[Rfam]
RNA sequence: CGGGUGGGGUCCGCGCGAGUCUGCUGGGGGAAUUCACUAUCGGCGGGACAGGGACGCUGCCGGUGUGGGAGAGGAUUCCCUCGCGGGACCUCUCCCCGUUGCUGGCAGGCCCUGCGCCGGUAUCCUCAUUCUCCGUGGCGGUGCGCGAGCGGCUCUGGAGUUCGGCUUGGAAAGGCUCGGGACGAAGGUGGCUCGCGACUCCGGCCGCGAGCUUUACAGCGCCCCCCGUCUGGACCUCGCCGUUUCCUGGGGCCGUGGACUAAGUGCUCGCUGCGCCCUCUCUCCCCGCGGGGAGGGACGGGGCCCCCUGCUCCCGGCGCGGCUGUCGACCGGGGCGGACUGUCCUCAGUGCGCCCCAACCGCGUCGCGUCGCCAGGGCGGGGAUCGGCUCACGUAAAAGGCGUCAGGGGUCUGCGGCGAUGUCGGCAACCCACCCGACCCGUCUUGAAACACGG
Numbered sequence: 001c002g003g004g005u006g007g008g009g010u011c012c013g014c015g016c017g018a019g020u021c022u023g024c025u026g027g028g029g030g031a032a033u034u035c036a037c038u039a040u041c042g043g044c045g046g047g048a049c050a051g052g053g054a055c056g057c058u059g060c061c062g063g064u065g066u067g068g069g070a071g072a073g074g075a076u077u078c079c080c081u082c083g084c085g086g087g088a089c090c091u092c093u094c095c096c097c098g099u100u101g102c103u104g105g106c107a108g109g110c111c112c113u114g115c116g117c118c119g120g121u122a123u124c125c126u127c128a129u130u131c132u133c134c135g136u137g138g139c140g141g142u143g144c145g146c147g148a149g150c151g152g153c154u155c156u157g158g159a160g161u162u163c164g165g166c167u168u169g170g171a172a173a174g175g176c177u178c179g180g181g182a183c184g185a186a187g188g189u190g191g192c193u194c195g196c197g198a199c200u201c202c203g204g205c206c207g208c209g210a211g212c213u214u215u216a217c218a219g220c221g222c223c224c225c226c227c228g229u230c231u232g233g234a235c236c237u238c239g240c241c242g243u244u245u246c247c248u249g250g251g252g253c254c255g256u257g258g259a260c261u262a263a264g265u266g267c268u269c270g271c272u273g274c275g276c277c278c279u280c281u282c283u284c285c286c287c288g289c290g291g292g293g294a295g296g297g298a299c300g301g302g303g304c305c306c307c308c309u310g311c312u313c314c315c316g317g318c319g320c321g322g323c324u325g326u327c328g329a330c331c332g333g334g335g336c337g338g339a340c341u342g343u344c345c346u347c348a349g350u351g352c353g354c355c356c357c358a359a360c361c362g363c364g365u366c367g368c369g370u371c372g373c374c375a376g377g378g379c380g381g382g383g384a385u386c387g388g389c390u391c392a393c394g395u396a397a398a399a400g401g402c403g404u405c406a407g408g409g410g411u412c413u414g415c416g417g418c419g420a421u422g423u424c425g426g427c428a429a430c431c432c433a434c435c436c437g438a439c440c441c442g443u444c445u446u447g448a449a450a451c452a453c454g455g
Stems, first nucleotide, its partner, number of pairs: 001437008010428001012426001017110001020109007117416001120413001440455004
Notes
This 455-nucleotide part of an RNA from Perca fluviatilis belongs to the Rfam family "Eukaryotic large subunit ribosomal RNA". A search with the family's covariance model found it, with a score of 2657 bits. The base pairs follow the family's consensus structure, which is taken from published work. Its Rfam clan is "LSU clan". Taxonomically the source falls in Perca (Eukaryota, Teleostomi, Neopterygii, Euteleosteomorpha).